[Rfam]
RNA sequence: CGCCUCUCAGUUUCCCGAGACUCAUUUUCCGCGAGGAAUGUCUAUCGCAGACCCCCCUUCCAGCUCGUUUAUCCAUGACUUGCUGCGUCCGAAUCUGUAUCAGAAACUCGUUGUUCGCAGCAUGGGGACCUGUCAUGUAUUGCGUUGUCGGUAACUAGACGACACGACCUAGCCGGGGGAAUGAGCUUUCGGAACUUAACCCUAAGAAAACAA
Numbered sequence: 001c002g003c004c005u006c007u008c009a010g011u012u013u014c015c016c017g018a019g020a021c022u023c024a025u026u027u028u029c030c031g032c033g034a035g036g037a038a039u040g041u042c043u044a045u046c047g048c049a050g051a052c053c054c055c056c057c058u059u060c061c062a063g064c065u066c067g068u069u070u071a072u073c074c075a076u077g078a079c080u081u082g083c084u085g086c087g088u089c090c091g092a093a094u095c096u097g098u099a100u101c102a103g104a105a106a107c108u109c110g111u112u113g114u115u116c117g118c119a120g121c122a123u124g125g126g127g128a129c130c131u132g133u134c135a136u137g138u139a140u141u142g143c144g145u146u147g148u149c150g151g152u153a154a155c156u157a158g159a160c161g162a163c164a165c166g167a168c169c170u171a172g173c174c175g176g177g178g179g180a181a182u183g184a185g186c187u188u189u190c191g192g193a194a195c196u197u198a199a200c201c202c203u204a205a206g207a208a209a210a211c212a213a
Base pairs, nucleotide, nucleotide: 009196010195011194015192016191017190018189019188020187
RNA: Ascomycota telomerase RNA, nucleotides 13 to 225